[Rfam]
RNA sequence: GUUCCCUUUAACUACAGUCCCGUGAGGCUGAGAAGGAAUUGUGAAAACGUACAGAUAGUAUAUCUAUGUCUGUUUAUUACGUGUACACAGAAAACCUCUCAUCAAUGGGUGAGAGGUUUUUUUAUU
Numbered sequence: 001g002u003u004c005c006c007u008u009u010a011a012c013u014a015c016a017g018u019c020c021c022g023u024g025a026g027g028c029u030g031a032g033a034a035g036g037a038a039u040u041g042u043g044a045a046a047a048c049g050u051a052c053a054g055a056u057a058g059u060a061u062a063u064c065u066a067u068g069u070c071u072g073u074u075u076a077u078u079a080c081g082u083g084u085a086c087a088c089a090g091a092a093a094a095c096c097u098c099u100c101a102u103c104a105a106u107g108g109g110u111g112a113g114a115g116g117u118u119u120u121u122u123u124a125u126u
Stems, first nucleotide, its partner, number of pairs: 003038001005036005015030005045075005051069003056066003090121014